[Rfam]
RNA sequence: UGGAGAAAUAUGAUGAUAAUAUUCAGAAAAUAUCUUAGGACACCUUCUGACACAGUUUCUGUGUAUGAGAAUGAUUUGUAAUUCUGAUUCUCCA
Numbered sequence: 001u002g003g004a005g006a007a008a009u010a011u012g013a014u015g016a017u018a019a020u021a022u023u024c025a026g027a028a029a030a031u032a033u034c035u036u037a038g039g040a041c042a043c044c045u046u047c048u049g050a051c052a053c054a055g056u057u058u059c060u061g062u063g064u065a066u067g068a069g070a071a072u073g074a075u076u077u078g079u080a081a082u083u084c085u086g087a088u089u090c091u092c093c094a
Stems, first nucleotide, its partner, number of pairs: 001094007048054002
Rfam assigns this 94-nucleotide RNA sequence from Brassica oleracea to the family "Small nucleolar RNA snoR31/Z110/Z27". This family contains several related snoRNAs including R31, Z27 and Z110. Rfam classes the family as a C/D-box small nucleolar RNA. A reference for the family is Barneche et al. (2001), "Identification of 66 box C/D snoRNAs in Arabidopsis thaliana: extensive gene duplications generated multiple isoforms predicting new ribosomal RNA 2'-O-methylation sites", J Mol Biol. It scores 80 bits against the family's covariance model.